[Rfam]
RNA sequence: UGGCUGUAGCAAUAACAUUGUAUCAUCUCAGAAGGAAACUGGUCGGUUGUUGCUGCCUUUUUAUUGUCGACAAACCGCUUACCAAACUUCUGACAUUU
Numbered sequence: 001u002g003g004c005u006g007u008a009g010c011a012a013u014a015a016c017a018u019u020g021u022a023u024c025a026u027c028u029c030a031g032a033a034g035g036a037a038a039c040u041g042g043u044c045g046g047u048u049g050u051u052g053c054u055g056c057c058u059u060u061u062u063a064u065u066g067u068c069g070a071c072a073a074a075c076c077g078c079u080u081a082c083c084a085a086a087c088u089u090c091u092g093a094c095a096u097u098u
Stems, first nucleotide, its partner, number of pairs: 029092006041079003045076004049071004
Small nucleolar RNA snoR109: a 98-nucleotide RNA sequence from Camphora micrantha.
The literature on the family includes a 2002 paper in Curr Biol by Marker et al., "Experimental RNomics: identification of 140 candidates for small non-messenger RNAs in the plant Arabidopsis thaliana".
Rfam links the family to the GO terms nucleolus and RNA processing.